[Rfam]
RNA sequence: GAGUCUACCACAAGUGCGAGUUUUAGGGUGGAAAAACCCGACGGCGCAACGAAAGUGAGUAUAAGGUGCGAAUCCGUAAGGAGGCAGCAUCGGCCAACCUUGAUUUUCGAAUGAAAGGAUUGAGCAAGAGCAUUUUUGGUAGGACCCGAAAGAUGGUGAACUACGCUUGAGUAGGGCGAAGCCAGGGGAAACUCUGGUGGAGGCUCGAAGCGUUACUGACGUGCAAAUCGUUCGUCAAACUUGAGUGUAGGGGCGAAAGACUAAUCGAACCAUCUAGUAGCUGGUU
Dot-bracket structure: ....((((((.((((((..(((...((((......))))...)))...((....))........(((((...((......))....))))).((((((((....(.....)....))).))).))....)))))).))))))..((.(...((((((...((((((((((((.((((...(((((((....)))))))....))))...(((..((.((........)))).)))..).))))))))))).((.......))......))))))......).))..